[Rfam]
RNA sequence: CUACAAGUGCAAGGCCAUAGCAGAAGCACCCACAAUGUGGCUCUGUCAGACUCCAGUGAAUCUGUGAAUUCUGCU
Numbered sequence: 001c002u003a004c005a006a007g008u009g010c011a012a013g014g015c016c017a018u019a020g021c022a023g024a025a026g027c028a029c030c031c032a033c034a035a036u037g038u039g040g041c042u043c044u045g046u047c048a049g050a051c052u053c054c055a056g057u058g059a060a061u062c063u064g065u066g067a068a069u070u071c072u073g074c075u
Base pairs, nucleotide, nucleotide: 013043014041015040016039019075020074021073022072023071024070025069026038027037028036047064048063049062050061052059053058
Mammalian CPEB3 ribozyme: a 75-nucleotide sequence from Crocodylus porosus.
Taxonomically the source falls in Crocodylus (Eukaryota, Bilateria, Dipnotetrapodomorpha, Sauropsida).
A search with the family's covariance model found it, with a score of 49 bits.
Gene Ontology term of the family: RNA nuclease activity.